Shown here is a 183-nucleotide sequence from Chromobacterium sp. LK11, a member of the family "Glycine riboswitch aptamer". The organism belongs to Chromobacterium, within Bacteria. This family represents the bacterial glycine riboswitch.

RNA sequence: UACCAGCCGAUUGGAGAGAGGCCCUAAGCGCUCGUUCAUCAUCUGCUACGCUUCAGCAACAGCGCGUCAGAUUAUGCGACCGGCCCUUAGCCGCCCACCGAAGGGGCAAGUGACAUCCGGCAAGGCCCGCACACCGGCCGCGCCCGUCAUCUAACUCUCAGGUAAAAGGACAAGGGGAGAGGC
Numbered sequence: 001u002a003c004c005a006g007c008c009g010a011u012u013g014g015a016g017a018g019a020g021g022c023c024c025u026a027a028g029c030g031c032u033c034g035u036u037c038a039u040c041a042u043c044u045g046c047u048a049c050g051c052u053u054c055a056g057c058a059a060c061a062g063c064g065c066g067u068c069a070g071a072u073u074a075u076g077c078g079a080c081c082g083g084c085c086c087u088u089a090g091c092c093g094c095c096c097a098c099c100g101a102a103g104g105g106g107c108a109a110g111u112g113a114c115a116u117c118c119g120g121c122a123a124g125g126c127c128c129g130c131a132c133a134c135c136g137g138c139c140g141c142g143c144c145c146g147u148c149a150u151c152u153a154a155c156u157c158u159c160a161g162g163u164a165a166a167a168g169g170a171c172a173a174g175g176g177g178a179g180a181g182g183c
Base pairs, nucleotide, nucleotide: 007177008176011173012172013171020095021094022093097163098162099161100159101158104157105156106155110150111149112148113147114146